mir-71 microRNA precursor family: a 65-nucleotide RNA from Schistosoma japonicum. The organism belongs to Schistosoma, within Eukaryota. On this family, see Li et al., BMC Genomics 2009: "Direct sequencing and expression analysis of a large number of miRNAs in Aedes aegypti and a multi-species survey of novel mosquito miRNAs".
RNA sequence: GUGCUGUGAAAGACGAUGGUAGUGAGAUGCCAGUUGCAUCUCGCUUCCCCGCCUUUCCCGGUAAG
Numbered sequence: 001g002u003g004c005u006g007u008g009a010a011a012g013a014c015g016a017u018g019g020u021a022g023u024g025a026g027a028u029g030c031c032a033g034u035u036g037c038a039u040c041u042c043g044c045u046u047c048c049c050c051g052c053c054u055u056u057c058c059c060g061g062u063a064a065g
Stems, first nucleotide, its partner, number of pairs: 008057005014051002018048002021045009